The record is a 213-nucleotide RNA sequence from Streptomyces poonensis, which matches "Streptomyces sRNA 4677" in Rfam. NCBI's taxonomy places the organism under Bacteria, Bacillati, Actinomycetes, Streptomycetaceae, Streptomyces. From the family's description: Located in the intergenic region between anti-sigma factor SCO4677 gene and a putative regulatory protein gene SCO4676. scr4677 expression requires the SCO4677 activity and scr4677 sRNA itself seem to affect the levels of the SCO4676-associated transcripts. Pairs were carried over by alignment from the consensus structure. By type it is a small RNA.
RNA sequence: GGGUCCGGCGGGCCGCUGACCUCCGUAAAGAACCGGGGACAGAACUACCCGCCCACCCACCCUCCCGCCUGCGUCACCCGUCUGGGUGAGUGGCUUGCAGGGGCGGGAUCCGGGCGGUUACGUUCGCCGCGACAACCGCAAACAGUUACGGCCCCCGGCCGGGACGGCAAUCCCAAUCGAGGGCCUGACCGAUCAGGAAGAGACACCUUCCCG
Numbered sequence: 001g002g003g004u005c006c007g008g009c010g011g012g013c014c015g016c017u018g019a020c021c022u023c024c025g026u027a028a029a030g031a032a033c034c035g036g037g038g039a040c041a042g043a044a045c046u047a048c049c050c051g052c053c054c055a056c057c058c059a060c061c062c063u064c065c066c067g068c069c070u071g072c073g074u075c076a077c078c079c080g081u082c083u084g085g086g087u088g089a090g091u092g093g094c095u096u097g098c099a100g101g102g103g104c105g106g107g108a109u110c111c112g113g114g115c116g117g118u119u120a121c122g123u124u125c126g127c128c129g130c131g132a133c134a135a136c137c138g139c140a141a142a143c144a145g146u147u148a149c150g151g152c153c154c155c156c157g158g159c160c161g162g163g164a165c166g167g168c169a170a171u172c173c174c175a176a177u178c179g180a181g182g183g184c185c186u187g188a189c190c191g192a193u194c195a196g197g198a199a200g201a202g203a204c205a206c207c208u209u210c211c212c213g
Stems, first nucleotide, its partner, number of pairs: 007193001009191002011069003074089006102128005150185005156179002161174004196211005